[Rfam]
RNA sequence: UAAAGGUGGAAGAUAAGACAUUUGAGGGGCCAGUAAAUCUUAAGCGUAUUGUAAAUACGUGGCUACAAAUGCAAACCAAAAGAAGACUUUAGUCUUCUUUUUUUAUGUUU
Numbered sequence: 001u002a003a004a005g006g007u008g009g010a011a012g013a014u015a016a017g018a019c020a021u022u023u024g025a026g027g028g029g030c031c032a033g034u035a036a037a038u039c040u041u042a043a044g045c046g047u048a049u050u051g052u053a054a055a056u057a058c059g060u061g062g063c064u065a066c067a068a069a070u071g072c073a074a075a076c077c078a079a080a081a082g083a084a085g086a087c088u089u090u091a092g093u094c095u096u097c098u099u100u101u102u103u104u105a106u107g108u109u110u
Stems, first nucleotide, its partner, number of pairs: 001008002019071006028064004032040002044060006078101010

Overview: The family of this 110-nucleotide sequence from Entomoplasma freundtii is "DUF3800-I RNA". The match comes from Rfam's covariance-model search (47 bits). The family's RNA type in Rfam is small RNA.